Rfam assigns this 400-nucleotide sequence from Actinopolymorpha singaporensis to the family "Bacterial RNase P class A".

[Rfam]
RNA sequence: CGAGUCGGCCGGGCGGCCGCGUCGAGCGUCUCGCGACGUUCGUCGAGGAAAGUCCGGACUCCGCAGAGCAGGGUGGUGGGUAACACCCACCCGGGGCGACCCGCGGGACAGUGCCACAGAAAACAGACCGCCAGCGGCCCCGGCUCGACGAGCCGGGGUGCGGGUAAGGGUGAAACGGUGGUGUAAGAGACCACCAGCACCUGGGGUGACUCAGGUGGCUAGGUAAACCCCACCCGGAGCAAGGCCAAGAAGGGACGGCACUUUCGGGUGCCGAUCCCGCGCAGGCGUUCGAGGGCUGCUCGCCCGAGCCUGCGGGUAGGCCGCUGGAGGUCGCCGGCAACGGCGACCCGAGAUGGAUGGCCGCCGACCACAGAAUCCGGCUUACAGGCCGGCUCGUCCA
Numbered sequence: 001c002g003a004g005u006c007g008g009c010c011g012g013g014c015g016g017c018c019g020c021g022u023c024g025a026g027c028g029u030c031u032c033g034c035g036a037c038g039u040u041c042g043u044c045g046a047g048g049a050a051a052g053u054c055c056g057g058a059c060u061c062c063g064c065a066g067a068g069c070a071g072g073g074u075g076g077u078g079g080g081u082a083a084c085a086c087c088c089a090c091c092c093g094g095g096g097c098g099a100c101c102c103g104c105g106g107g108a109c110a111g112u113g114c115c116a117c118a119g120a121a122a123a124c125a126g127a128c129c130g131c132c133a134g135c136g137g138c139c140c141c142g143g144c145u146c147g148a149c150g151a152g153c154c155g156g157g158g159u160g161c162g163g164g165u166a167a168g169g170g171u172g173a174a175a176c177g178g179u180g181g182u183g184u185a186a187g188a189g190a191c192c193a194c195c196a197g198c199a200c201c202u203g204g205g206g207u208g209a210c211u212c213a214g215g216u217g218g219c220u221a222g223g224u225a226a227a228c229c230c231c232a233c234c235c236g237g238a239g240c241a242a243g244g245c246c247a248a249g250a251a252g253g254g255a256c257g258g259c260a261c262u263u264u265c266g267g268g269u270g271c272c273g274a275u276c277c278c279g280c281g282c283a284g285g286c287g288u289u290c291g292a293g294g295g296c297u298g299c300u301c302g303c304c305c306g307a308g309c310c311u312g313c314g315g316g317u318a319g320g321c322c323g324c325u326g327g328a329g330g331u332c333g334c335c336g337g338c339a340a341c342g343g344c345g346a347c348c349c350g351a352g353a354u355g356g357a358u359g360g361c362c363g364c365c366g367a368c369c370a371c372a373g374a375a376u377c378c379g380g381c382u383u384a385c386a387g388g389c390c391g392g393c394u395c396g397u398c399c400a
Stems, first nucleotide, its partner, number of pairs: 001396010011385001012365007020045002023042006050383003054380005059239004066301004071235005076090005091105001092103004106230002111228002113224003128169002130165003134161003138157003177195006197219001198217008243322004293305004329348008
It is annotated as a ribozyme. Lineage of the source: Bacteria > Bacillati > Actinomycetota > Actinomycetes > Actinopolymorpha. The family is grouped with related families in Rfam's "RNaseP clan".